RNA sequence: UGCCGCAAACCCGUAGAUCCGAACUUGUGGUGACUGGCUGCACAAGCUCGUAUCUACAGGUAUGUGUCUU
Numbered sequence: 001u002g003c004c005g006c007a008a009a010c011c012c013g014u015a016g017a018u019c020c021g022a023a024c025u026u027g028u029g030g031u032g033a034c035u036g037g038c039u040g041c042a043c044a045a046g047c048u049c050g051u052a053u054c055u056a057c058a059g060g061u062a063u064g065u066g067u068c069u070u
Stems, first nucleotide, its partner, number of pairs: 002068001004066004010060002015055004020050003024046006
Dot-bracket structure: .(.((((..((...((((.(((.((((((...........)))))).))).))))...))..)))).)..
RNA: mir-10 microRNA precursor family
Organism: Neogobius melanostomus